Rfam assigns this 118-nucleotide RNA sequence from Drosophila mojavensis to the family "U5 spliceosomal RNA".
About the family: U5 RNA is a component of both types of known spliceosome. The precise function of this molecule is unknown, though it is known that the 5' loop is required for splice site selection and p220 binding, and that both the 3' stem-loop and the Sm site are important for Sm protein binding and cap methylation.
The base pairs follow the family's consensus structure, which is taken from published work.
The sequence is in the family's curated seed alignment.
Rfam links the family to the GO terms spliceosomal tri-snRNP complex assembly and U5 snRNP.

RNA sequence: UUACUCUGGCUUCUCUUCAGUUGUCGAAUAAAUCUUUCGCCUUUUACUAAAGAUUUCCGUGGAGAGGAGCACUCUAAUGAGUCUAAAUUGAAUUUUUUGAUUGUGUCUGACGGCGUUU
Numbered sequence: 001u002u003a004c005u006c007u008g009g010c011u012u013c014u015c016u017u018c019a020g021u022u023g024u025c026g027a028a029u030a031a032a033u034c035u036u037u038c039g040c041c042u043u044u045u046a047c048u049a050a051a052g053a054u055u056u057c058c059g060u061g062g063a064g065a066g067g068a069g070c071a072c073u074c075u076a077a078u079g080a081g082u083c084u085a086a087a088u089u090g091a092a093u094u095u096u097u098u099g100a101u102u103g104u105g106u107c108u109g110a111c112g113g114c115g116u117u118u
Stems, first nucleotide, its partner, number of pairs: 003082004009070011030056008100118001103116005